[Rfam]
RNA sequence: AUUGUCUGCUGAAUGAGUGAUCGGCGACAAGUUAUUUUAAUUCACUCACAUUUGGAGUUAUCUAUGUCAUUAAAUGCUGCAGAAAAAGCAAAAGUUGUUGCAGACUACGCAACUAAAGAA
Number, nucleotide and partner (000 for none) at each position: 001a000002u000003u000004g000005u000006c000007u026008g025009c024010u023011g022012a021013a000014u000015g000016a000017g000018u000019g000020a000021u012022c011023g010024g009025c008026g007027a000028c000029a000030a000031g000032u000033u000034a000035u000036u000037u000038u000039a000040a000041u000042u000043c000044a000045c000046u000047c000048a000049c000050a000051u074052u073053u072054g071055g070056a000057g068058u000059u000060a000061u000062c000063u000064a000065u000066g000067u000068c057069a000070u055071u054072a053073a052074a051075u000076g000077c000078u000079g000080c000081a000082g000083a000084a000085a000086a000087a000088g000089c000090a000091a000092a000093a000094g000095u000096u000097g000098u000099u000100g000101c000102a000103g000104a000105c000106u000107a000108c000109g000110c000111a000112a000113c000114u000115a000116a000117a000118g000119a000120a000
RNA: Ribosomal S15 leader